The family of this 95-nucleotide RNA sequence from an Armatimonadota bacterium is "Bacterial small signal recognition particle RNA". A search with the family's covariance model found it, with a score of 48 bits. Rfam's curators write: The signal recognition particle (SRP) is a universally conserved ribonucleoprotein involved in the co-translational targeting of proteins to membranes. Clan: SRP clan. It is annotated as a non-coding RNA gene. NCBI's taxonomy places the organism under Bacteria, Bacillati, Armatimonadota.

RNA sequence: AGUGCCACGGCAGCGGGUCGGCCACGAACCAGGUCAGGGCCGGAAGGCAGCAGCCUUAAGAGGUACGGCCCGUGUGUCGCCAGUGUGGAGCAGGC
Numbered sequence: 001a002g003u004g005c006c007a008c009g010g011c012a013g014c015g016g017g018u019c020g021g022c023c024a025c026g027a028a029c030c031a032g033g034u035c036a037g038g039g040c041c042g043g044a045a046g047g048c049a050g051c052a053g054c055c056u057u058a059a060g061a062g063g064u065a066c067g068g069c070c071c072g073u074g075u076g077u078c079g080c081c082a083g084u085g086u087g088g089a090g091c092a093g094g095c
Base pairs, nucleotide, nucleotide: 005088006087007086008085009078010077011074013073014072015071016070017069018068021064022063023062025060031056032055033054034053039048040047041046